RNA: tRNA
Organism: Rhizocola hellebori
RNA sequence: UCCGAUGUAGCUCAACAGGUUGAGCAGGCCCCUGUUAAGGGCAAGGUUCCUGGUUCGAGUCCAGGCAUCGGAG
Numbered sequence: 001u002c003c004g005a006u007g008u009a010g011c012u013c014a015a016c017a018g019g020u021u022g023a024g025c026a027g028g029c030c031c032c033u034g035u036u037a038a039g040g041g042c043a044a045g046g047u048u049c050c051u052g053g054u055u056c057g058a059g060u061c062c063a064g065g066c067a068u069c070g071g072a073g
Stems, first nucleotide, its partner, number of pairs: 001072007010025004028042004049065005